[Rfam]
RNA sequence: GUUCCCUGUGAUGCUUGUAAUUGGAUCCAUGCUAAUGCUGAAAUUCGUUUGAUGACGAAUUGGUUAUUUAUUUCUCUGAGGGAACA
Numbered sequence: 001g002u003u004c005c006c007u008g009u010g011a012u013g014c015u016u017g018u019a020a021u022u023g024g025a026u027c028c029a030u031g032c033u034a035a036u037g038c039u040g041a042a043a044u045u046c047g048u049u050u051g052a053u054g055a056c057g058a059a060u061u062g063g064u065u066a067u068u069u070a071u072u073u074c075u076c077u078g079a080g081g082g083a084a085c086a
Stems, first nucleotide, its partner, number of pairs: 001085007
A member of the RNA family "Small nucleolar RNA snoR53Y" from Camphora micrantha, 86 nucleotides long. The organism belongs to Camphora, within Eukaryota. The literature on the family includes a 2001 paper in RNA by Brown et al., "Multiple snoRNA gene clusters from Arabidopsis". Rfam classes the family as a C/D-box small nucleolar RNA.